[Rfam]
RNA: Small nucleolar RNA SNORA61
Organism: Sus scrofa
RNA sequence: ACCCUCCGGUUCCCUUUCCCAUCGGAUCUGAACACUGGUCUUGGUGGUCGUAAGAGGAGGAAUAACAGUACUGAAGCUGUCCUUACGGGGCCUGUAGUCUUCUACAGAGCAUGUGGGCUAGUUUCAAACAAGG
Numbered sequence: 001a002c003c004c005u006c007c008g009g010u011u012c013c014c015u016u017u018c019c020c021a022u023c024g025g026a027u028c029u030g031a032a033c034a035c036u037g038g039u040c041u042u043g044g045u046g047g048u049c050g051u052a053a054g055a056g057g058a059g060g061a062a063u064a065a066c067a068g069u070a071c072u073g074a075a076g077c078u079g080u081c082c083u084u085a086c087g088g089g090g091c092c093u094g095u096a097g098u099c100u101u102c103u104a105c106a107g108a109g110c111a112u113g114u115g116g117g118c119u120a121g122u123u124u125c126a127a128a129c130a131a132g133g
Stems, first nucleotide, its partner, number of pairs: 003060005019047005025040004077121003081117003093111003